Lysine riboswitch aptamer: a 174-nucleotide RNA from Clostridium tarantellae. The source organism's lineage runs through Bacteria, Bacillati, Bacillota, Clostridiaceae and Clostridium. About the family: Riboswitches are metabolite binding domains within certain messenger RNAs that serve as precision sensors for their corresponding targets. It scores 130 bits against the family's covariance model. Gene Ontology term of the family: lysine biosynthetic process.
Nucleotides: 174
Stems, first nucleotide, its partner, number of pairs: 007168005016078009032063007082113002085110009114140002117137008142159006
Number, partner (000 for none) and nucleotide at each position: 001000a002000g003000a004000a005000g006000a007168g008167a009166u010165a011164g012000a013000g014000g015000u016078g017077c018076g019075a020074u021073g022072a023071u024070u025000a026000a027000a028000a029000g030000u031000a032063c033062u034061a035060u036059u037058u038057u039000u040000a041000g042000g043000a044000g045000a046000a047000g048000u049000c050000c051000a052000g053000u054000a055000a056000u057038g058037a059036a060035a061034u062033a063032g064000g065000a066000a067000a068000g069000g070024a071023a072022u073021u074020a075019u076018c077017g078016c079000c080000g081000a082113a083112g084000u085110g086109a087108c088107u089106a090105a091104c092103u093102u094000a095000u096000a097000c098000u099000u100000u101000a102093g103092a104091g105090u106089u107088a108087g109086u110085u111000u112083c113082u114140g115139g116000g117137g118136u119135a120134g121133c122132a123131u124130a125000a126000a127000a128000u129000a130124u131123a132122u133121g134120u135119u136118a137117c138000a139115c140114u141000g142159u143158c144157a145156c146155a147154a148000u149000a150000u151000u152000a153000u154147u155146u156145g157144u158143g159142g160000a161000g162000u163000g164011c165010u166009a167008u168007c169000a170000u171000c172000u173000g174000a